[Rfam]
RNA sequence: ACCGGGCGUCGUGGCGGGCGUCUGUGAGCCAGCUUCUUGGCGGUAGAUGAGUGCGGAUGGAGUGAAGGGAGGAGUCCUGUGUGUGUUGUCGGCAACGGCGACCGAGCGUCCGUGCCAAGCGCUGCGUCGCCAGGGGUCAUCCGGCGGAGGCUGGGAGGUCCCGGGCGGAUAAGGAGAGGUGGACGGCUCAGGGCCGUGAGGCAGCAGGCAAAAGCUUCCGCGCGGGGCAGUGGUCGGAUAGCGCUUGUGAGUUGCAACACGCACGCAGCCUUCCUGACACCUUCAGACCGCUCAUCGU
Numbered sequence: 001a002c003c004g005g006g007c008g009u010c011g012u013g014g015c016g017g018g019c020g021u022c023u024g025u026g027a028g029c030c031a032g033c034u035u036c037u038u039g040g041c042g043g044u045a046g047a048u049g050a051g052u053g054c055g056g057a058u059g060g061a062g063u064g065a066a067g068g069g070a071g072g073a074g075u076c077c078u079g080u081g082u083g084u085g086u087u088g089u090c091g092g093c094a095a096c097g098g099c100g101a102c103c104g105a106g107c108g109u110c111c112g113u114g115c116c117a118a119g120c121g122c123u124g125c126g127u128c129g130c131c132a133g134g135g136g137u138c139a140u141c142c143g144g145c146g147g148a149g150g151c152u153g154g155g156a157g158g159u160c161c162c163g164g165g166c167g168g169a170u171a172a173g174g175a176g177a178g179g180u181g182g183a184c185g186g187c188u189c190a191g192g193g194c195c196g197u198g199a200g201g202c203a204g205c206a207g208g209c210a211a212a213a214g215c216u217u218c219c220g221c222g223c224g225g226g227g228c229a230g231u232g233g234u235c236g237g238a239u240a241g242c243g244c245u246u247g248u249g250a251g252u253u254g255c256a257a258c259a260c261g262c263a264c265g266c267a268g269c270c271u272u273c274c275u276g277a278c279a280c281c282u283u284c285a286g287a288c289c290g291c292u293c294a295u296c297g298u
Base pairs, nucleotide, nucleotide: 001044002043003042004023005022006021007020008019009018010017028041029040030039046296047295048294049293050292051291052290053289058285059284060283061282062281066275067274068273069272070271071270072269077268078267079266080265081264082263083262084261087259088258089257092255093254094253095252096251103247104246105245106244107243108242109241110237111236114234115233116232117231119228120227122225123224124223125222126221127220128167129166130165131164133162134161135160136159137158138157140155141154142153143152144151145150176218177217178216179215180214186209187208188207193202194201195200